[Rfam]
RNA sequence: AAGAGCCUCGAGUCGAUCGAGACUGAGGAGAUUGACUCAGGAACAGA
Dot-bracket structure: ......((.((((((((.............)))))))).))......
About this RNA: This 47-nucleotide RNA sequence from Schisandra sphenanthera belongs to the Rfam family "Plastid-rpl16 group II-D1 intron". About the family: Plastid-rpl16 is a non-coding RNA (ncRNA) recognised in plastids. It was recognised in and intronic region of a ribosome rpl16 gene. The source organism's lineage runs through Eukaryota, Spermatophyta, Magnoliopsida, Schisandraceae and Schisandra. Its family is annotated with Group II intron splicing in the Gene Ontology. The literature on the family includes a 2023 paper in Plant Commun by Richter et al., "Retrograde signaling in plants: A critical review focusing on the GUN pathway and beyond".